[Rfam]
RNA sequence: CUUUGCUCAGAGCAAACCCAUCGAAAGGUGGGGACGCAGAGCAACGGGGCUAAAGCCGAAAGGCCAUGUCCGCCGAGCCGCCAAA
Numbered sequence: 001c002u003u004u005g006c007u008c009a010g011a012g013c014a015a016a017c018c019c020a021u022c023g024a025a026a027g028g029u030g031g032g033g034a035c036g037c038a039g040a041g042c043a044a045c046g047g048g049g050c051u052a053a054a055g056c057c058g059a060a061a062g063g064c065c066a067u068g069u070c071c072g073c074c075g076a077g078c079c080g081c082c083a084a085a
Stems, first nucleotide, its partner, number of pairs: 012037002017032006041078002045075003048070003055064003
RNA: c-di-GMP-I riboswitch aptamer